A member of the RNA family "Bacillaceae-1 RNA" from Virgibacillus necropolis, 68 nucleotides long.

RNA sequence: GGGGAAGGAACUUCUACUAAGACCGCCCACGUCCUGUGGGCAACAUAGAAGUCAGUACAUCCUGUACA
Numbered sequence: 001g002g003g004g005a006a007g008g009a010a011c012u013u014c015u016a017c018u019a020a021g022a023c024c025g026c027c028c029a030c031g032u033c034c035u036g037u038g039g040g041c042a043a044c045a046u047a048g049a050a051g052u053c054a055g056u057a058c059a060u061c062c063u064g065u066a067c068a
Base pairs, nucleotide, nucleotide: 011051012050013049014048015047016046026040027039028038029037030036055067056066057065058064
It scores 63 bits against the family's covariance model. The base pairs follow the family's consensus structure, which is taken from published work.